[Rfam]
RNA sequence: UGGGCGGUAUCGAUAGAACUGCACCUAGUGUAAAAAAUGGUGAAUAUAAAAUGGUUCUGCCUAGAUCCGAAACCGGACCGGGACAGAGGG
Numbered sequence: 001u002g003g004g005c006g007g008u009a010u011c012g013a014u015a016g017a018a019c020u021g022c023a024c025c026u027a028g029u030g031u032a033a034a035a036a037a038u039g040g041u042g043a044a045u046a047u048a049a050a051a052u053g054g055u056u057c058u059g060c061c062u063a064g065a066u067c068c069g070a071a072a073c074c075g076g077a078c079c080g081g082g083a084c085a086g087a088g089g090g
Base pairs, nucleotide, nucleotide: 002025003024004022005021006020007019008018010017011016057086058085059084060082061081062080064078066077067076068075